[Rfam]
RNA sequence: UGUCAAAAGGGCGUUUAGUGGAUGCCUUGGCAUGUAGAGGCGAUGAAGGACGUAGCACGCUGCGAUAAGUCUCGGGGAGUUGCGAGCAGACUUUGAUCCGAGAAUUUCCGAAUGGGGAAACCCACCGCUUAUGCGGUAUCACACACUGAAUACAUAGGUGUGUGAGGCAAACCCGGGGAACUGAAACAUCUAAGUACCCGGAGGAAAGGACAUCAAUUGAGACUCCGUUAGUAGUGGCGAGCGAACGCGGACCAGGCCAGUGCUCUUAUCAAUCGAACCGGAACCGUCUGGAAAGUCGGGCCGCAGUGGGUGACAGCCCCGUACGGGUAGGAAAGAUAAGAGACUCGAGUAGGGCGGGACACGUGAAAUCCUGUCUGAACAUGGGGGGACCAUCCUCCAAGCCUAAGUACUCCUACAUGACCGAUAGUGAACCAGUACCGUGAGGGAAAGGUGAAAAGCACCCCGACGAGGGGAGUGAAACAGACCCUGAAACUGGACGCCUACAAG
Numbered sequence: 001u002g003u004c005a006a007a008a009g010g011g012c013g014u015u016u017a018g019u020g021g022a023u024g025c026c027u028u029g030g031c032a033u034g035u036a037g038a039g040g041c042g043a044u045g046a047a048g049g050a051c052g053u054a055g056c057a058c059g060c061u062g063c064g065a066u067a068a069g070u071c072u073c074g075g076g077g078a079g080u081u082g083c084g085a086g087c088a089g090a091c092u093u094u095g096a097u098c099c100g101a102g103a104a105u106u107u108c109c110g111a112a113u114g115g116g117g118a119a120a121c122c123c124a125c126c127g128c129u130u131a132u133g134c135g136g137u138a139u140c141a142c143a144c145a146c147u148g149a150a151u152a153c154a155u156a157g158g159u160g161u162g163u164g165a166g167g168c169a170a171a172c173c174c175g176g177g178g179a180a181c182u183g184a185a186a187c188a189u190c191u192a193a194g195u196a197c198c199c200g201g202a203g204g205a206a207a208g209g210a211c212a213u214c215a216a217u218u219g220a221g222a223c224u225c226c227g228u229u230a231g232u233a234g235u236g237g238c239g240a241g242c243g244a245a246c247g248c249g250g251a252c253c254a255g256g257c258c259a260g261u262g263c264u265c266u267u268a269u270c271a272a273u274c275g276a277a278c279c280g281g282a283a284c285c286g287u288c289u290g291g292a293a294a295g296u297c298g299g300g301c302c303g304c305a306g307u308g309g310g311u312g313a314c315a316g317c318c319c320c321g322u323a324c325g326g327g328u329a330g331g332a333a334a335g336a337u338a339a340g341a342g343a344c345u346c347g348a349g350u351a352g353g354g355c356g357g358g359a360c361a362c363g364u365g366a367a368a369u370c371c372u373g374u375c376u377g378a379a380c381a382u383g384g385g386g387g388g389a390c391c392a393u394c395c396u397c398c399a400a401g402c403c404u405a406a407g408u409a410c411u412c413c414u415a416c417a418u419g420a421c422c423g424a425u426a427g428u429g430a431a432c433c434a435g436u437a438c439c440g441u442g443a444g445g446g447a448a449a450g451g452u453g454a455a456a457a458g459c460a461c462c463c464c465g466a467c468g469a470g471g472g473g474a475g476u477g478a479a480a481c482a483g484a485c486c487c488u489g490a491a492a493c494u495g496g497a498c499g500c501c502u503a504c505a506a507g
Stems, first nucleotide, its partner, number of pairs: 009502010024487001025451002029422002031419007038411002040168002048109003051064003070103007079091003114123003124137005139165009172203001173201005183190002213220002223407001224251005234242002254404004262344001263342005273332001278326003284299003288295001302306001308320003352376008383398005438445002461473004

This 507-nucleotide part of an RNA from Maricaulis maris belongs to the Rfam family "Bacterial large subunit ribosomal RNA". NCBI's taxonomy places the organism under Bacteria, Pseudomonadati, Alphaproteobacteria, Maricaulaceae, Maricaulis maris. Gene Ontology terms of the family: ribosome and structural constituent of ribosome.